[Rfam]
RNA sequence: ACACUAAAUAGAGGUGCGCCGAAGAAGAGUAAGCCUUUUCGUAAUCUGCCAGGGGGCAGGAGAAGGAAGAAAGGCUAAAGCGCCGAAGCUUAUGCUAUGCCCCUACGUAGCACAGGCUGGGGUGUUUCAUGAAAAAUGAACAUCCUGUCACAAGGGACCUUACAUCUUUUUGUGGAGCGCUAUUUAUGAU
Numbered sequence: 001a002c003a004c005u006a007a008a009u010a011g012a013g014g015u016g017c018g019c020c021g022a023a024g025a026a027g028a029g030u031a032a033g034c035c036u037u038u039u040c041g042u043a044a045u046c047u048g049c050c051a052g053g054g055g056g057c058a059g060g061a062g063a064a065g066g067a068a069g070a071a072a073g074g075c076u077a078a079a080g081c082g083c084c085g086a087a088g089c090u091u092a093u094g095c096u097a098u099g100c101c102c103c104u105a106c107g108u109a110g111c112a113c114a115g116g117c118u119g120g121g122g123u124g125u126u127u128c129a130u131g132a133a134a135a136a137u138g139a140a141c142a143u144c145c146u147g148u149c150a151c152a153a154g155g156g157a158c159c160u161u162a163c164a165u166c167u168u169u170u171u172g173u174g175g176a177g178c179g180c181u182a183u184u185u186a187u188g189a190u
Stems, first nucleotide, its partner, number of pairs: 006185006016083004023076002034066006087118005093112006119146007127139004148175009
This 190-nucleotide RNA from Brevibacillus brevis belongs to the Rfam family "Lysine riboswitch aptamer". Gene Ontology term of the family: lysine biosynthetic process.